A member of the RNA family "mir-124 microRNA precursor family" from Halicephalobus sp. NKZ332, 71 nucleotides long. NCBI's taxonomy places the organism under Eukaryota, Opisthokonta, Eumetazoa, Chromadorea, Halicephalobus. A search with the family's covariance model found it, with a score of 54 bits.

RNA sequence: UGCAUUUGGUUUUCACCAGUGACUUUGGUGAGAUUUCGGAAAACUAAGGCACGCGGUGAAUGCCAAUUGCC
Numbered sequence: 001u002g003c004a005u006u007u008g009g010u011u012u013u014c015a016c017c018a019g020u021g022a023c024u025u026u027g028g029u030g031a032g033a034u035u036u037c038g039g040a041a042a043a044c045u046a047a048g049g050c051a052c053g054c055g056g057u058g059a060a061u062g063c064c065a066a067u068u069g070c071c
Base pairs, nucleotide, nucleotide: 003069004068006066009063010062012060013059014058015057016056019054020053021052023049024048025047026046027045028044029043